Rfam assigns this 157-nucleotide RNA from Bifidobacterium aemilianum to the family "M-box riboswitch aptamer (ykoK leader)". From the family's description: M-box riboswitch, also know as ykoK leader is described as a metaloregulatory RNA that sense divalent metals and function as a genetic control element of genes related to divalent metal transport in bacteria. It was first reported upstream of the B.subtilis ykoK gene and genes with related functions in other bacteria. A search with the family's covariance model found it, with a score of 102 bits. The family has 159 seed sequences and 1,095 matches in Rfam 15.1.
[Rfam]
RNA sequence: GUGAGGCGUCGGUAGGCGAGGCUACCGCAUGGAUACGGAUUACUGCCGCAAAGCAGUGGAGACACUGCACGCUGGUUAACAGUCCUUGUCGGAUCAAGGCAGGGACUAACGUAAGGCCAAGCCAUGCGAAGCUGAAGCUUGAACAAUGACUCGAACU
Numbered sequence: 001g002u003g004a005g006g007c008g009u010c011g012g013u014a015g016g017c018g019a020g021g022c023u024a025c026c027g028c029a030u031g032g033a034u035a036c037g038g039a040u041u042a043c044u045g046c047c048g049c050a051a052a053g054c055a056g057u058g059g060a061g062a063c064a065c066u067g068c069a070c071g072c073u074g075g076u077u078a079a080c081a082g083u084c085c086u087u088g089u090c091g092g093a094u095c096a097a098g099g100c101a102g103g104g105a106c107u108a109a110c111g112u113a114a115g116g117c118c119a120a121g122c123c124a125u126g127c128g129a130a131g132c133u134g135a136a137g138c139u140u141g142a143a144c145a146a147u148g149a150c151u152c153g154a155a156c157u
Base pairs, nucleotide, nucleotide: 006152008150009149010148011144013097015139016138017137020133021132022131026128027127028126029125030124031123032122040114041113042112043111046074048072049071055066056065057064058063082106083105084104085103088100089099090098
Dot-bracket structure: .....(.((((.[.(((..(((...(((((((.......((((..(.((.....((((....))))....)).).......((((..(((......])))..))))....)))).......)))))))..)))...)))....)...))).).....